[Rfam]
RNA sequence: GGCUCAUCCAGAGGGGUAGAGGGACCGGCCCGACGACACCCCGGCAACCGGCGUCAGCGUGCAGCGGCGAUCACGGUGCCAAUUCCGACCCGUCCGCGGGGAAGAUGAGGA
Numbered sequence: 001g002g003c004u005c006a007u008c009c010a011g012a013g014g015g016g017u018a019g020a021g022g023g024a025c026c027g028g029c030c031c032g033a034c035g036a037c038a039c040c041c042c043g044g045c046a047a048c049c050g051g052c053g054u055c056a057g058c059g060u061g062c063a064g065c066g067g068c069g070a071u072c073a074c075g076g077u078g079c080c081a082a083u084u085c086c087g088a089c090c091c092g093u094c095c096g097c098g099g100g101g102a103a104g105a106u107g108a109g110g111a
Stems, first nucleotide, its partner, number of pairs: 003109006013042005021031003026087003043080004048076002050072002084103001089100004
SAM riboswitch aptamer (S box leader): a 111-nucleotide RNA sequence from Actinomycetospora cinnamomea. From the family's description: The SAM riboswitch is found upstream of a number of genes which code for proteins involved in methionine or cysteine biosynthesis in Gram-positive bacteria. The match comes from Rfam's covariance-model search (75 bits). For this family Rfam cites "The S box regulon: a new global transcription termination control system for methionine and cysteine biosynthesis genes in gram-positive bacteria" (Grundy and Henkin, Mol Microbiol, 1998). Pairs were carried over by alignment from the consensus structure, which is taken from published work. Its family is annotated with regulation of gene expression in the Gene Ontology.